[Rfam]
The record is a 78-nucleotide RNA from Microcaecilia unicolor, which matches "Mammalian CPEB3 ribozyme" in Rfam.

RNA sequence: UAAGCUGUUCCAAGGGCUUCAGUUGAAAUGUUCAUGCCAUGGCCCCUGCUUGAUUCCUCUGCAUCUGUGUAUUCUGCU
Numbered sequence: 001u002a003a004g005c006u007g008u009u010c011c012a013a014g015g016g017c018u019u020c021a022g023u024u025g026a027a028a029u030g031u032u033c034a035u036g037c038c039a040u041g042g043c044c045c046c047u048g049c050u051u052g053a054u055u056c057c058u059c060u061g062c063a064u065c066u067g068u069g070u071a072u073u074c075u076g077c078u
Stems, first nucleotide, its partner, number of pairs: 014045005021078003025074003028040003050067001052065003056061001
A search with the family's covariance model found it, with a score of 41 bits.